[Rfam]
RNA: MIR7502 microRNA precursor family
RNA sequence: UGUUAAAAAUUUCAUCAAUGUUUAUUGUUAAAAAUUGAAGUGAUUGACGAAAUAACCAAACAAUUACACAUAGCAUGCUACGUGCACCUCAUGCUGGCGUACAGAAGCCAAGUUUUAACAAUAGAAUUGGAUGAAAUUUUUAAUA
Numbered sequence: 001u002g003u004u005a006a007a008a009a010u011u012u013c014a015u016c017a018a019u020g021u022u023u024a025u026u027g028u029u030a031a032a033a034a035u036u037g038a039a040g041u042g043a044u045u046g047a048c049g050a051a052a053u054a055a056c057c058a059a060a061c062a063a064u065u066a067c068a069c070a071u072a073g074c075a076u077g078c079u080a081c082g083u084g085c086a087c088c089u090c091a092u093g094c095u096g097g098c099g100u101a102c103a104g105a106a107g108c109c110a111a112g113u114u115u116u117a118a119c120a121a122u123a124g125a126a127u128u129g130g131a132u133g134a135a136a137u138u139u140u141u142a143a144u145a
Stems, first nucleotide, its partner, number of pairs: 002144015018128001021125006028118006